[Rfam]
The family of this 150-nucleotide RNA sequence from Ramlibacter cellulosilyticus is "FMN riboswitch aptamer (RFN element)".
RNA sequence: GUGCGUCUUCAGGGCGGGGUGGAAGUCCCCACCGGCGGUAGGCGGCGCAAGCCGCGAGCCCGCGAGCGCUCCGCAGCCACGCCGCGGAGGUCAGCAGACCCGGUCGAAUGCCGGGGCCGACGGUCACAGUCCGGAUGGAAGAAGAUGCGC
Numbered sequence: 001g002u003g004c005g006u007c008u009u010c011a012g013g014g015c016g017g018g019g020u021g022g023a024a025g026u027c028c029c030c031a032c033c034g035g036c037g038g039u040a041g042g043c044g045g046c047g048c049a050a051g052c053c054g055c056g057a058g059c060c061c062g063c064g065a066g067c068g069c070u071c072c073g074c075a076g077c078c079a080c081g082c083c084g085c086g087g088a089g090g091u092c093a094g095c096a097g098a099c100c101c102g103g104u105c106g107a108a109u110g111c112c113g114g115g116g117c118c119g120a121c122g123g124u125c126a127c128a129g130u131c132c133g134g135a136u137g138g139a140a141g142a143a144g145a146u147g148c149g150c
Stems, first nucleotide, its partner, number of pairs: 003148008017029003031130002033119002035063004058117002066095002099115005121133003